[Rfam]
A member of the RNA family "S15-Flavobacteria ribosomal protein leader" from Flavobacterium cellulosilyticum, 68 nucleotides long. It is annotated as a cis-regulatory leader. On this family, see Eckert and Weinberg, BMC Microbiol 2020: "Discovery of 20 novel ribosomal leader candidates in bacteria and archaea".

RNA sequence: UAUUUUUGCAGCCGUCUUGCAAUAGCUGUGAGAUAUACAUAAAAAUCAUUUAAAUAAAUAUUAGCAUG
Numbered sequence: 001u002a003u004u005u006u007u008g009c010a011g012c013c014g015u016c017u018u019g020c021a022a023u024a025g026c027u028g029u030g031a032g033a034u035a036u037a038c039a040u041a042a043a044a045a046u047c048a049u050u051u052a053a054a055u056a057a058a059u060a061u062u063a064g065c066a067u068g
Base pairs, nucleotide, nucleotide: 014034015033016032017031018030019029